This 127-nucleotide RNA sequence from Clostridium oryzae belongs to the Rfam family "SAM riboswitch aptamer (S box leader)".
[Rfam]
RNA sequence: UUCUUAUCAAGAGUGGUUGAGGGACUGGCCCGUUGACGCCCGACAACCUAUACUUCAUGGAUUUUUAUGCAUAUACGAAGUAUAAGGUGUUAAUUCCAGCAGAAUUAAUUUUUCUGACAGAUAAGAA
Number, nucleotide and partner (000 for none) at each position: 001u127002u126003c125004u124005u123006a122007u121008c120009a000010a000011g000012a000013g041014u000015g040016g039017u038018u000019g000020a000021g031022g030023g029024a000025c099026u098027g097028g096029c023030c022031c021032g000033u000034u000035g000036a000037c000038g017039c016040c015041c013042g091043a090044c089045a088046a000047c087048c086049u000050a083051u082052a081053c080054u079055u078056c077057a000058u000059g000060g000061a000062u000063u000064u000065u000066u000067a000068u000069g000070c000071a000072u000073a000074u000075a000076c000077g056078a055079a054080g053081u052082a051083u050084a000085a000086g048087g047088u045089g044090u043091u042092a000093a000094u000095u119096c028097c027098a026099g025100c116101a115102g114103a113104a112105u000106u000107a000108a000109u000110u000111u000112u104113u103114c102115u101116g100117a000118c000119a095120g008121a007122u006123a005124a004125g003126a002127a001
About this RNA:
It scores 86 bits against the family's covariance model. The organism belongs to Clostridium, within Bacteria.